Notes: small Cajal body-specific RNA 18: an 84-nucleotide RNA from Peromyscus maniculatus. It is annotated as a small Cajal body RNA. scaRNAs are a specific class of small nuclear RNAs which localise to the Cajal bodies and guide the modification of RNA polymerase II transcribed spliceosomal RNAs U1, U2, U4, U5 and U12. This C/D box domain U91 (also known as U4-8) was identified by Darzacq and is predicted to guide the 2'O-ribose methylation of U4 snRNA C8. For this family Rfam cites "Cajal body-specific small nuclear RNAs: a novel class of 2'-O-methylation and pseudouridylation guide RNAs" (Darzacq et al., EMBO J, 2002). The organism belongs to Peromyscus maniculatus, within Eukaryota. A search with the family's covariance model found it, with a score of 47 bits. Rfam 15.1 lists 406 matches to the family in 191 species.

RNA sequence: UGGCCAGUGAGAACUUGAUCACUGUAUAUUCUGAGUUUCUGGGAACCAGGAGAAGGAGUGUGCUCUGGAAGAAAGAAAAGGAAG
Numbered sequence: 001u002g003g004c005c006a007g008u009g010a011g012a013a014c015u016u017g018a019u020c021a022c023u024g025u026a027u028a029u030u031c032u033g034a035g036u037u038u039c040u041g042g043g044a045a046c047c048a049g050g051a052g053a054a055g056g057a058g059u060g061u062g063c064u065c066u067g068g069a070a071g072a073a074a075g076a077a078a079a080g081g082a083a084g
Base pairs, nucleotide, nucleotide: 004081005080039049040048041047042046